[Rfam]
RNA sequence: CCGGGCCUUACGCCGAACCCUGCCACUGGCCCGGAAUUUCAGACUUUCAGGCAGGGGCGGAGGACCCAUCAAUCGGCAGCCAAGGCUGCCUCGGGGUGAAGCCUCCAGCAUCAGCACAGCGGCCGCACCACUGGUGCGGCCGGUGGUGAGUGCGGGGCCGAGUUUCUCUACUCGAAUCCGACAGCUAACUUCGCAGGCAUAUGAGAGAGGUAUA
Numbered sequence: 001c002c003g004g005g006c007c008u009u010a011c012g013c014c015g016a017a018c019c020c021u022g023c024c025a026c027u028g029g030c031c032c033g034g035a036a037u038u039u040c041a042g043a044c045u046u047u048c049a050g051g052c053a054g055g056g057g058c059g060g061a062g063g064a065c066c067c068a069u070c071a072a073u074c075g076g077c078a079g080c081c082a083a084g085g086c087u088g089c090c091u092c093g094g095g096g097u098g099a100a101g102c103c104u105c106c107a108g109c110a111u112c113a114g115c116a117c118a119g120c121g122g123c124c125g126c127a128c129c130a131c132u133g134g135u136g137c138g139g140c141c142g143g144u145g146g147u148g149a150g151u152g153c154g155g156g157g158c159c160g161a162g163u164u165u166c167u168c169u170a171c172u173c174g175a176a177u178c179c180g181a182c183a184g185c186u187a188a189c190u191u192c193g194c195a196g197g198c199a200u201a202u203g204a205g206a207g208a209g210g211u212a213u214a
Stems, first nucleotide, its partner, number of pairs: 012198003018056007057194006067093001094179003102157004160173004
RNA: c-di-AMP riboswitch aptamer (ydaO/yuaA leader)
Organism: Arthrobacter sunyaminii